This 136-nucleotide RNA from Salipaludibacillus agaradhaerens belongs to the Rfam family "PyrR binding site".

RNA sequence: CCUCCCUUUAAACCAGUCCAGUGAGGCUGAAAAGGGGUAUAUUCCUCCUCCUAAGUUGAAGUGGGCACUUUUACACGGUGCUUCCCUAAGGAGUGAUGAAAUACCUCUUUGAGAACAGCCAAAGAGGUUUUUUUAU
Numbered sequence: 001c002c003u004c005c006c007u008u009u010a011a012a013c014c015a016g017u018c019c020a021g022u023g024a025g026g027c028u029g030a031a032a033a034g035g036g037g038u039a040u041a042u043u044c045c046u047c048c049u050c051c052u053a054a055g056u057u058g059a060a061g062u063g064g065g066c067a068c069u070u071u072u073a074c075a076c077g078g079u080g081c082u083u084c085c086c087u088a089a090g091g092a093g094u095g096a097u098g099a100a101a102u103a104c105c106u107c108u109u110u111g112a113g114a115a116c117a118g119c120c121a122a123a124g125a126g127g128u129u130u131u132u133u134u135a136u
Stems, first nucleotide, its partner, number of pairs: 003037007014029005042096002045093005099132003103128009

For this family Rfam cites "Molecular recognition of pyr mRNA by the Bacillus subtilis attenuation regulatory protein PyrR" (Bonner et al., Nucleic Acids Res, 2001). The family's RNA type in Rfam is cis-regulatory element.